This 156-nucleotide RNA sequence from Populus tomentosa belongs to the Rfam family "MIR2912 microRNA precursor family".
[Rfam]
RNA sequence: UCUAGAACUUGAGAUAUAGGCUAAACACUGAAUAGUGUCUAGACUGCAGGACAGAUUCAAAGUUAUCCGUUGUUGCUAUAAUUUGGACUUGAAAACAAUAUUUUUAAAUCUUGGACUUCAUAUGAAAGUUGUAGGCCUAUGUCUUGCCUUUCCAUC
Numbered sequence: 001u002c003u004a005g006a007a008c009u010u011g012a013g014a015u016a017u018a019g020g021c022u023a024a025a026c027a028c029u030g031a032a033u034a035g036u037g038u039c040u041a042g043a044c045u046g047c048a049g050g051a052c053a054g055a056u057u058c059a060a061a062g063u064u065a066u067c068c069g070u071u072g073u074u075g076c077u078a079u080a081a082u083u084u085g086g087a088c089u090u091g092a093a094a095a096c097a098a099u100a101u102u103u104u105u106a107a108a109u110c111u112u113g114g115a116c117u118u119c120a121u122a123u124g125a126a127a128g129u130u131g132u133a134g135g136c137c138u139a140u141g142u143c144u145u146g147c148c149u150u151u152c153c154a155u156c
Base pairs, nucleotide, nucleotide: 003154005152006151007150009146011145012144013143014142015141016140017139018138019137020136021134022133023132025130027129028128029127035123036122037121042118043117045115048112049111050110051109054105055104060099063097072088073087074086

It scores 106 bits against the family's covariance model. Its family is annotated with miRNA-mediated post-transcriptional gene silencing and RISC complex in the Gene Ontology.